[Rfam]
RNA sequence: CUUCGUAUUCUUCCACAGCUUUCUUGAACUGCAACUUCGUUUUAGAUUGUUGGUUUCUUUUGUUCUUGGUAAUGGUGCAUCCAUGUGGGCAGUAGACGCCUACACGGUCUAUUUUGUUGCGGUUCAAUAAAGCUGUGGGAAGAUACAAUCA
Number, nucleotide and partner (000 for none) at each position: 001c000002u000003u148004c000005g146006u145007a144008u000009u000010c000011u000012u000013c138014c137015a136016c000017a134018g133019c132020u131021u130022u129023c000024u127025u126026g125027a124028a000029c122030u121031g120032c119033a118034a117035c116036u000037u000038c000039g000040u000041u000042u000043u000044a000045g000046a000047u000048u000049g000050u000051u000052g000053g000054u000055u000056u000057c000058u000059u000060u000061u000062g000063u000064u000065c000066u000067u000068g000069g000070u000071a000072a000073u000074g000075g000076u000077g000078c000079a000080u000081c000082c000083a000084u000085g000086u000087g000088g000089g000090c000091a000092g000093u000094a000095g000096a000097c000098g000099c000100c000101u000102a000103c000104a000105c000106g000107g000108u000109c000110u000111a000112u000113u000114u000115u000116g035117u034118u033119g032120c031121g030122g029123u000124u027125c026126a025127a024128u000129a022130a021131a020132g019133c018134u017135g000136u015137g014138g013139g000140a000141a000142g000143a000144u007145a006146c005147a000148a003149u000150c000151a000
RNA: MIR396 microRNA precursor family